RNA sequence: GAAUGACGUGUGAGAAACACGUCCUCCGAAAGACCAAGGGUUCCAGGGUCAAGCUAAUCUUCCCUGGGUAAGUCGGGACCUAAGGCGAGGCCGACAGGCGUAGUCGAUGGACAACGGGUUGAUAUUCCCGUACCGGCGAAGAACCGCCCAAGCUAAUCCAGUGGUGCUAAGUGCCUGAAUCCCAGUGUAUCGAUCCCUUCGGGGUGAGAGCGUUGGGCCUAGCGCACGACCCCAUGCUGGUGCGGUUAGCGUAUUAACAGGUGUGACGCAGGAAGGUAGCCCAUCCCGGGCGAUGGUUGUCCCGGGGCAAGUGCGUAGGCCGAGUGAUAGGCAAAUCCGUCACUCAUUGAGGCUGAGACACGAUGCGGAUAAAAAGUGGGUGAUCCUAUGCUGCCAAGAAAAGCAUCGACGCGAGGUUCAAGCCGCCCGUACCCCAAACCGACUCAGGUGGUCAGGUAGAGAAUACUAAGGAGAU
Numbered sequence: 001g002a003a004u005g006a007c008g009u010g011u012g013a014g015a016a017a018c019a020c021g022u023c024c025u026c027c028g029a030a031a032g033a034c035c036a037a038g039g040g041u042u043c044c045a046g047g048g049u050c051a052a053g054c055u056a057a058u059c060u061u062c063c064c065u066g067g068g069u070a071a072g073u074c075g076g077g078a079c080c081u082a083a084g085g086c087g088a089g090g091c092c093g094a095c096a097g098g099c100g101u102a103g104u105c106g107a108u109g110g111a112c113a114a115c116g117g118g119u120u121g122a123u124a125u126u127c128c129c130g131u132a133c134c135g136g137c138g139a140a141g142a143a144c145c146g147c148c149c150a151a152g153c154u155a156a157u158c159c160a161g162u163g164g165u166g167c168u169a170a171g172u173g174c175c176u177g178a179a180u181c182c183c184a185g186u187g188u189a190u191c192g193a194u195c196c197c198u199u200c201g202g203g204g205u206g207a208g209a210g211c212g213u214u215g216g217g218c219c220u221a222g223c224g225c226a227c228g229a230c231c232c233c234a235u236g237c238u239g240g241u242g243c244g245g246u247u248a249g250c251g252u253a254u255u256a257a258c259a260g261g262u263g264u265g266a267c268g269c270a271g272g273a274a275g276g277u278a279g280c281c282c283a284u285c286c287c288g289g290g291c292g293a294u295g296g297u298u299g300u301c302c303c304g305g306g307g308c309a310a311g312u313g314c315g316u317a318g319g320c321c322g323a324g325u326g327a328u329a330g331g332c333a334a335a336u337c338c339g340u341c342a343c344u345c346a347u348u349g350a351g352g353c354u355g356a357g358a359c360a361c362g363a364u365g366c367g368g369a370u371a372a373a374a375a376g377u378g379g380g381u382g383a384u385c386c387u388a389u390g391c392u393g394c395c396a397a398g399a400a401a402a403g404c405a406u407c408g409a410c411g412c413g414a415g416g417u418u419c420a421a422g423c424c425g426c427c428c429g430u431a432c433c434c435c436a437a438a439c440c441g442a443c444u445c446a447g448g449u450g451g452u453c454a455g456g457u458a459g460a461g462a463a464u465a466c467u468a469a470g471g472a473g474a475u
Stems, first nucleotide, its partner, number of pairs: 005023006024473004032453004038433002043067006052060002074429004079110002084105003088101001090099003114235001116233003238425004244419002247416001260407005268394004274387003279381005285306006307366002311361003318354003322345007330338002439448002455467004